The family of this 81-nucleotide RNA sequence from Nannospalax galili is "mir-3473 microRNA precursor family". Gene Ontology terms of the family: miRNA-mediated post-transcriptional gene silencing, RISC complex and cellular response to mechanical stimulus. It scores 78 bits against the family's covariance model.

RNA sequence: ACUGCUGAGCCAUCUCUCCAGCCCCAAGAAGAACCUUUCUUAAAAACAAAAGAAGCAGGGCUGGAGAGAUGGCUCAGCAGU
Numbered sequence: 001a002c003u004g005c006u007g008a009g010c011c012a013u014c015u016c017u018c019c020a021g022c023c024c025c026a027a028g029a030a031g032a033a034c035c036u037u038u039c040u041u042a043a044a045a046a047c048a049a050a051a052g053a054a055g056c057a058g059g060g061c062u063g064g065a066g067a068g069a070u071g072g073c074u075c076a077g078c079a080g081u
Stems, first nucleotide, its partner, number of pairs: 002080023
Dot-bracket structure: .(((((((((((((((((((((((.................................))))))))))))))))))))))).